[Rfam]
Annotation:
Shown here is a 99-nucleotide RNA sequence from Anaerosporobacter mobilis, a member of the family "TPP riboswitch aptamer (THI element)". The match comes from Rfam's covariance-model search (68 bits). Pairs were carried over by alignment from the consensus structure, which is taken from published work. Lineage of the source: Bacteria > Bacillota > Clostridia > Lachnospirales > Anaerosporobacter mobilis.
RNA sequence: GCAUAAUGCUAGGGGAGCUCUUGUGGCUGAGAUGUAUUUAUACAACCCUCAUAACUUGAACUGGUUAAAACCAGCGUAAGGAAGCACAUGUUUGUACAU
Numbered sequence: 001g002c003a004u005a006a007u008g009c010u011a012g013g014g015g016a017g018c019u020c021u022u023g024u025g026g027c028u029g030a031g032a033u034g035u036a037u038u039u040a041u042a043c044a045a046c047c048c049u050c051a052u053a054a055c056u057u058g059a060a061c062u063g064g065u066u067a068a069a070a071c072c073a074g075c076g077u078a079a080g081g082a083a084g085c086a087c088a089u090g091u092u093u094g095u096a097c098a099u
Base pairs, nucleotide, nucleotide: 007086008085009084010083011049012048013047014046017027018026019025034043035042036041055080056079057078058077061074062073063072064071